[Rfam]
This 139-nucleotide RNA from Dickeya dadantii belongs to the Rfam family "CpoB/ybgF ICR thermometer".
A search with the family's covariance model found it, with a score of 130 bits.
From the family's description: Imprinting control region from upstream of cpoB/ybgF (tol/pal system protein).
A reference for the family is Righetti et al. (2016), "Temperature-responsive in vitro RNA structurome of Yersinia pseudotuberculosis", Proc Natl Acad Sci U S A.

RNA sequence: UCAGAUCUCCGUGGUUUCUUACGGUAAAGAGAAACCUGCCGUUCUGGGUCAUGACGAAGCUGCAUGGUCCAAAAACCGUCGUGCCGUUCUGGUAUACUAAGAGAAUCGCAUGAGCAGUAACUUCAGACAUCACCUGUUG
Numbered sequence: 001u002c003a004g005a006u007c008u009c010c011g012u013g014g015u016u017u018c019u020u021a022c023g024g025u026a027a028a029g030a031g032a033a034a035c036c037u038g039c040c041g042u043u044c045u046g047g048g049u050c051a052u053g054a055c056g057a058a059g060c061u062g063c064a065u066g067g068u069c070c071a072a073a074a075a076c077c078g079u080c081g082u083g084c085c086g087u088u089c090u091g092g093u094a095u096a097c098u099a100a101g102a103g104a105a106u107c108g109c110a111u112g113a114g115c116a117g118u119a120a121c122u123u124c125a126g127a128c129a130u131c132a133c134c135u136g137u138u139g
Stems, first nucleotide, its partner, number of pairs: 001047004007041001014035007054138001057135001059133001062130001065127001075118002078115001079113006086106005